A member of the RNA family "Bacterial RNase P class A" from Calditerricola satsumensis, 423 nucleotides long. Its Rfam clan is "RNaseP clan". The match comes from Rfam's covariance-model search (285 bits).
[Rfam]
RNA sequence: AAAGCAAUCCGGGCAACCGCUGGCGGAGUGGCGCAAGCCCCCGCUGGAGGAAAGUCCGGGCUCCACAGGGCAGGGUGCUGGGUAACACCCAGUCGGCGCGAGCCGAAGGAUAGUGCCACAGAAACCAGACCGCCGAUGGCGACCGGUUUCGGUCGCACAGGCAAGGGUGGAACCGUGAGGUAAGAGCUCACGAGGUCGGCUGGCGACUGUCGACCUGGUAAACCCCACCCGGAGCAAGGCCUAGUAGAGGGACAGCCGCGCAUCCCGCGCGGCACACGUGGCCCGCGUGGUCCCUGGGUAGGCCGCUUGAGCCGUUCAGCAAUGGACGGCCCAGAUAGAUGGUUGCCGCCCCAAUGGGUGGGAGGCCAGAGGGCCGCUCGACCACUCGGGGAACAGAACCCGGCUUACAGGAUUGCUUUCCCG
Numbered sequence: 001a002a003a004g005c006a007a008u009c010c011g012g013g014c015a016a017c018c019g020c021u022g023g024c025g026g027a028g029u030g031g032c033g034c035a036a037g038c039c040c041c042c043g044c045u046g047g048a049g050g051a052a053a054g055u056c057c058g059g060g061c062u063c064c065a066c067a068g069g070g071c072a073g074g075g076u077g078c079u080g081g082g083u084a085a086c087a088c089c090c091a092g093u094c095g096g097c098g099c100g101a102g103c104c105g106a107a108g109g110a111u112a113g114u115g116c117c118a119c120a121g122a123a124a125c126c127a128g129a130c131c132g133c134c135g136a137u138g139g140c141g142a143c144c145g146g147u148u149u150c151g152g153u154c155g156c157a158c159a160g161g162c163a164a165g166g167g168u169g170g171a172a173c174c175g176u177g178a179g180g181u182a183a184g185a186g187c188u189c190a191c192g193a194g195g196u197c198g199g200c201u202g203g204c205g206a207c208u209g210u211c212g213a214c215c216u217g218g219u220a221a222a223c224c225c226c227a228c229c230c231g232g233a234g235c236a237a238g239g240c241c242u243a244g245u246a247g248a249g250g251g252a253c254a255g256c257c258g259c260g261c262a263u264c265c266c267g268c269g270c271g272g273c274a275c276a277c278g279u280g281g282c283c284c285g286c287g288u289g290g291u292c293c294c295u296g297g298g299u300a301g302g303c304c305g306c307u308u309g310a311g312c313c314g315u316u317c318a319g320c321a322a323u324g325g326a327c328g329g330c331c332c333a334g335a336u337a338g339a340u341g342g343u344u345g346c347c348g349c350c351c352c353a354a355u356g357g358g359u360g361g362g363a364g365g366c367c368a369g370a371g372g373g374c375c376g377c378u379c380g381a382c383c384a385c386u387c388g389g390g391g392a393a394c395a396g397a398a399c400c401c402g403g404c405u406u407a408c409a410g411g412a413u414u415g416c417u418u419u420c421c422c423g
Stems, first nucleotide, its partner, number of pairs: 001419010011408001012347007020047007028039001052406003056403005061234004068284004073230005078092005093107001094105004108225002113223002115219003130166002132162003141153001174192006195214006202207001238304004248295006275289005311330008
Annotation
The organism belongs to Calditerricola, within Bacteria.